[Rfam]
RNA sequence: GGCGGGCCGCAAGUGCCUCGACAGUCGAUCAUCGUAUGCUGUCGUGUGACGCUUCUCCCCGUC
Numbered sequence: 001g002g003c004g005g006g007c008c009g010c011a012a013g014u015g016c017c018u019c020g021a022c023a024g025u026c027g028a029u030c031a032u033c034g035u036a037u038g039c040u041g042u043c044g045u046g047u048g049a050c051g052c053u054u055c056u057c058c059c060c061g062u063c
Stems, first nucleotide, its partner, number of pairs: 001063006013050002017046001019044007026034002
RNA: gabT RNA